[Rfam]
RNA: DUF805b RNA
Organism: Chitinophaga rupis
Nucleotides: 036
Stems, first nucleotide, its partner, number of pairs: 002021004010035003
Number, partner (000 for none) and nucleotide at each position: 001000c002021a003020a004019g005018g006000a007000g008000c009000a010035g011034c012033c013000g014000a015000a016000a017000a018005c019004c020003u021002u022000c023000u024000g025000a026000c027000a028000g029000a030000g031000u032000a033012g034011g035010c036000a